[Rfam]
RNA sequence: UAAUCUAUUCAAGGACUGCCGAAGACAGUAGGUGUGCGAUGCACGUAAGGACAGAAUACAAGGACGCCUACCGAGGGAUGAUCGAUACAAAAUGUAUGAUUUGCAAACCUCUAUUGUCUUAGGAUAUAGAGGUUUUAUUUUAUAUCU
Number, nucleotide and partner (000 for none) at each position: 001u000002a000003a000004u000005c000006u000007a000008u000009u000010c000011a000012a000013g000014g000015a000016c000017u000018g000019c000020c000021g000022a000023a000024g000025a000026c000027a000028g071029u070030a069031g068032g067033u066034g044035u043036g042037c000038g000039a000040u000041g000042c036043a035044c034045g000046u000047a000048a000049g000050g000051a000052c000053a000054g000055a000056a000057u000058a000059c000060a000061a000062g000063g000064a000065c000066g033067c032068c031069u030070a029071c028072c000073g000074a000075g000076g000077g000078a000079u000080g000081a000082u000083c000084g000085a000086u000087a000088c000089a000090a000091a000092a000093u000094g000095u000096a000097u000098g000099a000100u000101u000102u000103g000104c000105a000106a000107a000108c132109c131110u130111c129112u128113a127114u126115u000116g000117u123118c000119u000120u000121a000122g000123g117124a000125u000126a114127u113128a112129g111130a110131g109132g108133u000134u000135u000136u000137a000138u000139u000140u000141u000142a000143u000144a000145u000146c000147u000